Shown here is a 151-nucleotide RNA from Peromyscus maniculatus, a member of the family "U12 minor spliceosomal RNA".
Clan: U2 clan.
It scores 116 bits against the family's covariance model.
On this family, see Tarn and Steitz, Trends Biochem Sci 1997: "Pre-mRNA splicing: the discovery of a new spliceosome doubles the challenge".
[Rfam]
RNA sequence: AUGCUUUAAACUUAUGAGUAAGGAAAAUAACGAUUCGGGGUGAUGCUGGAGUCCUCACUGCUAAUGUGAGAAGAAUUUUUGAGCCGGUAAAGGAUACCCCAUAAGGCGACCCUCCUACUUUGUGGGAUGCCUGGGUGCAGUAGUCUGCCCA
Numbered sequence: 001a002u003g004c005u006u007u008a009a010a011c012u013u014a015u016g017a018g019u020a021a022g023g024a025a026a027a028u029a030a031c032g033a034u035u036c037g038g039g040g041u042g043a044u045g046c047u048g049g050a051g052u053c054c055u056c057a058c059u060g061c062u063a064a065u066g067u068g069a070g071a072a073g074a075a076u077u078u079u080u081g082a083g084c085c086g087g088u089a090a091a092g093g094a095u096a097c098c099c100c101a102u103a104a105g106g107c108g109a110c111c112c113u114c115c116u117a118c119u120u121u122g123u124g125g126g127a128u129g130c131c132u133g134g135g136u137g138c139a140g141u142a143g144u145c146u147g148c149c150c151a
Stems, first nucleotide, its partner, number of pairs: 004023005032053005038047002054070005086149003091146003095142003100135001104132005110126003114122001